Description:
ffh sRNA: a 55-nucleotide RNA sequence from Novosphingobium sp. AP12. The base pairs follow the family's consensus structure, which is taken from published work. On this family, see Meyer et al., BMC Genomics 2009: "Identification of candidate structured RNAs in the marine organism 'Candidatus Pelagibacter ubique'". By type it is a small RNA.
RNA sequence: UUCGCAUAGAGUCAUGCACGCCGGUCAGCGAGGUUUCGCCCACCGGCGUUUUUUG
Numbered sequence: 001u002u003c004g005c006a007u008a009g010a011g012u013c014a015u016g017c018a019c020g021c022c023g024g025u026c027a028g029c030g031a032g033g034u035u036u037c038g039c040c041c042a043c044c045g046g047c048g049u050u051u052u053u054u055g
Stems, first nucleotide, its partner, number of pairs: 019048007028039004
Dot-bracket structure: ..................(((((((..((((....))))..))))))).......